[Rfam]
RNA sequence: UGUGUUUGUCCUAAGUCAAACUUCUCUAACUUUGACCAUGCUUUUAGAAAAUAUACUAACAUUUACAAGUUCAAAUAAAUUCUCUAUCAAAAUAUAUUGCAUAAAGAAUCUAAUGAAACUCAUCUGAUAUUCUAGAUGUUUGAGUGUUUUUCUACAAACUUGGACAAAGUUAAAGAAGUUUGACUUAGAACAAAGCCAA
Numbered sequence: 001u002g003u004g005u006u007u008g009u010c011c012u013a014a015g016u017c018a019a020a021c022u023u024c025u026c027u028a029a030c031u032u033u034g035a036c037c038a039u040g041c042u043u044u045u046a047g048a049a050a051a052u053a054u055a056c057u058a059a060c061a062u063u064u065a066c067a068a069g070u071u072c073a074a075a076u077a078a079a080u081u082c083u084c085u086a087u088c089a090a091a092a093u094a095u096a097u098u099g100c101a102u103a104a105a106g107a108a109u110c111u112a113a114u115g116a117a118a119c120u121c122a123u124c125u126g127a128u129a130u131u132c133u134a135g136a137u138g139u140u141u142g143a144g145u146g147u148u149u150u151u152c153u154a155c156a157a158a159c160u161u162g163g164a165c166a167a168a169g170u171u172a173a174a175g176a177a178g179u180u181u182g183a184c185u186u187a188g189a190a191c192a193a194a195g196c197c198a199a
Base pairs, nucleotide, nucleotide: 005194006193007192008191009190011188012187013186014185015184016183017182018181019180020179021178022177023176024175025174031168032167033166034165045154046153047152048151049150050149051148054144056142058140059139060138061137062136063135064134065133067131071127072126073125075123076122
RNA: MIR1435 microRNA precursor family